A member of the RNA family "Small nucleolar RNA SNORA72" from Neodrepanis coruscans, 133 nucleotides long. The match comes from Rfam's covariance-model search (96 bits). On this family, see Ganot et al., Genes Dev 1997: "The family of box ACA small nucleolar RNAs is defined by an evolutionarily conserved secondary structure and ubiquitous sequence elements essential for RNA accumulation".

RNA sequence: AUGCGAAUAUUCUCGCUGUCCUGAUAUUCCCGUUGUCAGGGGAGGCUAGACAUUCGCUACAGUGAAGCUGCAUUGUGUCCUCCAGGACUAGACUGUUGCUCUAGUGCUGGCUUUGUAAAUGCUAGUGACAGAU
Numbered sequence: 001a002u003g004c005g006a007a008u009a010u011u012c013u014c015g016c017u018g019u020c021c022u023g024a025u026a027u028u029c030c031c032g033u034u035g036u037c038a039g040g041g042g043a044g045g046c047u048a049g050a051c052a053u054u055c056g057c058u059a060c061a062g063u064g065a066a067g068c069u070g071c072a073u074u075g076u077g078u079c080c081u082c083c084a085g086g087a088c089u090a091g092a093c094u095g096u097u098g099c100u101c102u103a104g105u106g107c108u109g110g111c112u113u114u115g116u117a118a119a120u121g122c123u124a125g126u127g128a129c130a131g132a133u
Base pairs, nucleotide, nucleotide: 003057004056005055016044017043019041020040021039022038023037024036025035026034067126068125069124070122071121082110083109084108085107087105088104089103090102091101
Rfam's curators write: U72 is a member of the H/ACA class of snoRNAs. The snoRNA gene is located in intron 4 of the ribosomal L30 protein gene in human, mouse and chicken.